[Rfam]
RNA sequence: CCUCCCUUUCUUGGCAGGAUUGGGUCUUCCUGUACCCAUUUCUGUAAUGUGCGGAGGUAAAAAAAAUACUGCCCAAUGUCAUGUCUUCGGUGCCAGCGGUUUUCCCAUCUGCUGGUUCUAUCCUCAAGCACUGGGACACGC
Numbered sequence: 001c002c003u004c005c006c007u008u009u010c011u012u013g014g015c016a017g018g019a020u021u022g023g024g025u026c027u028u029c030c031u032g033u034a035c036c037c038a039u040u041u042c043u044g045u046a047a048u049g050u051g052c053g054g055a056g057g058u059a060a061a062a063a064a065a066a067u068a069c070u071g072c073c074c075a076a077u078g079u080c081a082u083g084u085c086u087u088c089g090g091u092g093c094c095a096g097c098g099g100u101u102u103u104c105c106c107a108u109c110u111g112c113u114g115g116u117u118c119u120a121u122c123c124u125c126a127a128g129c130a131c132u133g134g135g136a137c138a139c140g141c
Base pairs, nucleotide, nucleotide: 001057002056003055004054005053015044016043017042018041019040022037023036024035025034074133075132077130078129079128093115094114095113096112097111098110099109

Small nucleolar RNA SNORA57: a 141-nucleotide RNA sequence from Pantherophis guttatus. Gene Ontology terms of the family: nucleolus and RNA processing. The base pairs follow the family's consensus structure, which was predicted with PFOLD. By type it is an H/ACA-box small nucleolar RNA. U99 belongs to the H/ACA class of snoRNAs which are thought to guide the sites of modification of uridines to pseudouridines, the target for this family is unknown.